[Rfam]
RNA sequence: GACAAUUUGUCCGAGUGGUUAAGGAGGAAGACUAGAAAUCUUUUGGGUUUACCCGCGCAGGUUCGAAUCCUGCAGUUGUCG
Dot-bracket structure: (((((((..(((..........))).(((((.......))))).............(((((.......)))))))))))).
Numbered sequence: 001g002a003c004a005a006u007u008u009g010u011c012c013g014a015g016u017g018g019u020u021a022a023g024g025a026g027g028a029a030g031a032c033u034a035g036a037a038a039u040c041u042u043u044u045g046g047g048u049u050u051a052c053c054c055g056c057g058c059a060g061g062u063u064c065g066a067a068u069c070c071u072g073c074a075g076u077u078g079u080c081g
Stems, first nucleotide, its partner, number of pairs: 001080007010025003027043005057073005